[Rfam]
RNA: Glycine riboswitch aptamer
RNA sequence: AGAUUCCGCGCGGGAGAGAGAGUCCCGGUCAGCCGGGGCUCCGCCGAAGGCGCAACCGGCCCCCGGAAACGCUCAGGCCCAUGAACCGCGCGGUGGAG
Number, nucleotide and partner (000 for none) at each position: 001a000002g000003a000004u000005u000006c093007c092008g091009c090010g089011c088012g087013g086014g000015a000016g000017a000018g000019a000020g041021a040022g039023u038024c037025c036026c035027g034028g000029u000030c000031a000032g000033c000034c027035g026036g025037g024038g023039c022040u021041c020042c000043g078044c077045c076046g074047a073048a000049g000050g072051c071052g070053c000054a000055a000056c066057c065058g000059g000060c000061c000062c000063c000064c000065g057066g056067a000068a000069a000070c052071g051072c050073u047074c046075a000076g045077g044078c043079c000080c000081a000082u000083g000084a000085a000086c013087c012088g011089c010090g009091c008092g007093g006094u000095g000096g000097a000098g000